This 105-nucleotide RNA from Flavobacterium succinicans belongs to the Rfam family "SAM riboswitch aptamer (S box leader)". The match comes from Rfam's covariance-model search (81 bits). About the family: The SAM riboswitch is found upstream of a number of genes which code for proteins involved in methionine or cysteine biosynthesis in Gram-positive bacteria. NCBI's taxonomy places the organism under Bacteria, Pseudomonadati, Flavobacteriales, Flavobacteriaceae, Flavobacterium. The base pairs follow the family's consensus structure, which is taken from published work.
[Rfam]
RNA sequence: AUGUUAUAAAGAAAGGCGGAGGGAUUAGACCCAAUGAAGCCUUAGCAACCCUUCGGAAAUCGAAGAAGGUGCUACAUUCUAUUCGCCUAGCGAAAAAGAUAACGC
Numbered sequence: 001a002u003g004u005u006a007u008a009a010a011g012a013a014a015g016g017c018g019g020a021g022g023g024a025u026u027a028g029a030c031c032c033a034a035u036g037a038a039g040c041c042u043u044a045g046c047a048a049c050c051c052u053u054c055g056g057a058a059a060u061c062g063a064a065g066a067a068g069g070u071g072c073u074a075c076a077u078u079c080u081a082u083u084c085g086c087c088u089a090g091c092g093a094a095a096a097a098g099a100u101a102a103c104g105c
Base pairs, nucleotide, nucleotide: 002104003103004102005101006100007099013043014042015041016040017039021032022031023030026081027080028079029078044073045072046071047070049069050068051065052064053063054062077097082094083093084092085091086090